RNA sequence: UGAGACAAGCAGAAGUACCCACUUCUCACCUGAUUGACGCCGCUUGGCAGUUGGCAGGUACGAAAACAGUGUUCUAGGACAAAUGUGGGUGCCGUAUGCGUACCGGCAUUUUUUUUAUGCU
Numbered sequence: 001u002g003a004g005a006c007a008a009g010c011a012g013a014a015g016u017a018c019c020c021a022c023u024u025c026u027c028a029c030c031u032g033a034u035u036g037a038c039g040c041c042g043c044u045u046g047g048c049a050g051u052u053g054g055c056a057g058g059u060a061c062g063a064a065a066a067c068a069g070u071g072u073u074c075u076a077g078g079a080c081a082a083a084u085g086u087g088g089g090u091g092c093c094g095u096a097u098g099c100g101u102a103c104c105g106g107c108a109u110u111u112u113u114u115u116u117a118u119g120c121u
Stems, first nucleotide, its partner, number of pairs: 011026006028059003036052003039048002084108003088104005
A member of the RNA family "Ribosomal protein L20 leader" from Terribacillus saccharophilus, 121 nucleotides long. The source organism's lineage runs through Bacteria, Bacillati, Bacilli, Bacillaceae and Terribacillus. A search with the family's covariance model found it, with a score of 63 bits. It is annotated as a cis-regulatory leader. Gene Ontology term of the family: regulation of gene expression.